[Rfam]
RNA sequence: CCCCAAUGAUGAAACCUUCACAUGUCCGACCAGCUGCCUGUUGCCAGAGCCUGAAAAGGUGAACCCACUGGCUCAACAGCUGGAGAGGAAGGAUGACUUGUUCCAGCUGGAACUGUCUGAGGGGG
Numbered sequence: 001c002c003c004c005a006a007u008g009a010u011g012a013a014a015c016c017u018u019c020a021c022a023u024g025u026c027c028g029a030c031c032a033g034c035u036g037c038c039u040g041u042u043g044c045c046a047g048a049g050c051c052u053g054a055a056a057a058g059g060u061g062a063a064c065c066c067a068c069u070g071g072c073u074c075a076a077c078a079g080c081u082g083g084a085g086a087g088g089a090a091g092g093a094u095g096a097c098u099u100g101u102u103c104c105a106g107c108u109g110g111a112a113c114u115g116u117c118u119g120a121g122g123g124g125g
Base pairs, nucleotide, nucleotide: 001124002123003122004121
RNA: Small nucleolar RNA SNORD22